The family of this 63-nucleotide RNA from Trypanosoma cruzi is "Trypanosomatid snoRNA TB10Cs1H2". The base pairs follow the family's consensus structure, which was predicted with WAR. For this family Rfam cites "Psiscan: a computational approach to identify H/ACA-like and AGA-like non-coding RNA in trypanosomatid genomes" (Myslyuk et al., BMC Bioinformatics, 2008).

[Rfam]
RNA sequence: AGCACUCAUUUCAAGCCGUCCGAGCAAAAACGAGUUGCUCUGCGGUCGGGUGACGUGCAAGAC
Numbered sequence: 001a002g003c004a005c006u007c008a009u010u011u012c013a014a015g016c017c018g019u020c021c022g023a024g025c026a027a028a029a030a031c032g033a034g035u036u037g038c039u040c041u042g043c044g045g046u047c048g049g050g051u052g053a054c055g056u057g058c059a060a061g062a063c
Base pairs, nucleotide, nucleotide: 002058003057004056005055006053007052008051009050015046016045017044018043019042022040023039024038025037026036
NCBI's taxonomy places the organism under Eukaryota, Euglenozoa, Trypanosomatida, Trypanosomatidae, Schizotrypanum. Rfam 15.1 lists 35 matches to the family in 17 species.